[Rfam]
RNA: U11 spliceosomal RNA
Organism: Ornithorhynchus anatinus
RNA sequence: AAAAAGGGCUUCUGCCGUGCGUGGCACACGGGAAGCGGCGGGGUCCCCUCAGCCGUUUCUCGUGCGGAAUCGACAUCAAGAGAUUUCGGAAGCACAAUUUUUGUCCCCGGGGCCGCUGGUGAUCGCUUGUCCUG
Numbered sequence: 001a002a003a004a005a006g007g008g009c010u011u012c013u014g015c016c017g018u019g020c021g022u023g024g025c026a027c028a029c030g031g032g033a034a035g036c037g038g039c040g041g042g043g044u045c046c047c048c049u050c051a052g053c054c055g056u057u058u059c060u061c062g063u064g065c066g067g068a069a070u071c072g073a074c075a076u077c078a079a080g081a082g083a084u085u086u087c088g089g090a091a092g093c094a095c096a097a098u099u100u101u102u103g104u105c106c107c108c109g110g111g112g113c114c115g116c117u118g119g120u121g122a123u124c125g126c127u128u129g130u131c132c133u134g
Stems, first nucleotide, its partner, number of pairs: 008093005013026005027064012065088007110132004114125002